A member of the RNA family "FMN riboswitch aptamer (RFN element)" from Weissella cibaria, 132 nucleotides long. The literature on the family includes a 2002 paper in Nucleic Acids Res by Vitreschak et al., "Regulation of riboflavin biosynthesis and transport genes in bacteria by transcriptional and translational attenuation". Rfam links the family to the GO term FMN binding.

[Rfam]
RNA sequence: UAAUAUCUUCAGGGCAGGGUGAAAUUCCCGACCGGCGGUAAGCUGCAACGCAGUAAGUCCGCGACCCGCGAAUGCGGUUGACAUGGUGUGAUUCCAUGACCGACAGUAAAGUCUGGUAUGCAGAAGAACUUA
Numbered sequence: 001u002a003a004u005a006u007c008u009u010c011a012g013g014g015c016a017g018g019g020u021g022a023a024a025u026u027c028c029c030g031a032c033c034g035g036c037g038g039u040a041a042g043c044u045g046c047a048a049c050g051c052a053g054u055a056a057g058u059c060c061g062c063g064a065c066c067c068g069c070g071a072a073u074g075c076g077g078u079u080g081a082c083a084u085g086g087u088g089u090g091a092u093u094c095c096a097u098g099a100c101c102g103a104c105a106g107u108a109a110a111g112u113c114u115g116g117u118a119u120g121c122a123g124a125a126g127a128a129c130u131u132a
Stems, first nucleotide, its partner, number of pairs: 003130001006127005017029003031112002033102002035062004057100002066077002082098005104115003